[Rfam]
RNA sequence: CCUUUAUCCAGAGUGGCGGAGGGACUAGGCCCGAAGAUGCCCAGCAACCAGCGAAUUCAUCAACUUGUUUUUGCAAAGGUGCUAAUUCCUACAGAUUCGAAUCGGGAUCUGAAAGAUAAGGG
Numbered sequence: 001c002c003u004u005u006a007u008c009c010a011g012a013g014u015g016g017c018g019g020a021g022g023g024a025c026u027a028g029g030c031c032c033g034a035a036g037a038u039g040c041c042c043a044g045c046a047a048c049c050a051g052c053g054a055a056u057u058c059a060u061c062a063a064c065u066u067g068u069u070u071u072u073g074c075a076a077a078g079g080u081g082c083u084a085a086u087u088c089c090u091a092c093a094g095a096u097u098c099g100a101a102u103c104g105g106g107a108u109c110u111g112a113a114a115g116a117u118a119a120g121g122g
Base pairs, nucleotide, nucleotide: 001122002121003120004119005118006117007116008115013042015041016040017039021032022031023030026091027090028089029088043083044082045081046080048079049078051074052073053072054071055070087114092111093110094109095108096107097106
The family of this 122-nucleotide RNA sequence from Lysinibacillus composti is "SAM riboswitch aptamer (S box leader)".
The family is grouped with related families in Rfam's "SAM clan".
A search with the family's covariance model found it, with a score of 84 bits.